[Rfam]
RNA sequence: GGCAUCGGUGACUCGUACGGGGCCCGUCGACGGCGCGAUUCGGUCGUGUCGAGAUGCAAGGGCCCGCGGUGUCGUCAGCGCUCGGGCGGGAGACGCUCCAUG
Numbered sequence: 001g002g003c004a005u006c007g008g009u010g011a012c013u014c015g016u017a018c019g020g021g022g023c024c025c026g027u028c029g030a031c032g033g034c035g036c037g038a039u040u041c042g043g044u045c046g047u048g049u050c051g052a053g054a055u056g057c058a059a060g061g062g063c064c065c066g067c068g069g070u071g072u073c074g075u076c077a078g079c080g081c082u083c084g085g086g087c088g089g090g091a092g093a094c095g096c097u098c099c100a101u102g
Base pairs, nucleotide, nucleotide: 014068015067016066020065021064022063023062024061025060026055027054028053033049034048035047036046037045038044

Rfam assigns this 102-nucleotide sequence to the family "malK-III RNA". Rfam classes the family as a cis-regulatory element.